[Rfam]
RNA: Small nucleolar RNA snoR97
RNA sequence: CCGUCCUAAAUGGAUUAGGGUCUGAAAAACUCAUAGAUUGUUGUGUUGUUCAUCACCUUCAUUUCUUGUUUAACCCACGAGAUAGGAGACAAAUACCAGCACUACAUCU
Numbered sequence: 001c002c003g004u005c006c007u008a009a010a011u012g013g014a015u016u017a018g019g020g021u022c023u024g025a026a027a028a029a030c031u032c033a034u035a036g037a038u039u040g041u042u043g044u045g046u047u048g049u050u051c052a053u054c055a056c057c058u059u060c061a062u063u064u065c066u067u068g069u070u071u072a073a074c075c076c077a078c079g080a081g082a083u084a085g086g087a088g089a090c091a092a093a094u095a096c097c098a099g100c101a102c103u104a105c106a107u108c109u
Stems, first nucleotide, its partner, number of pairs: 043102006057088004062082004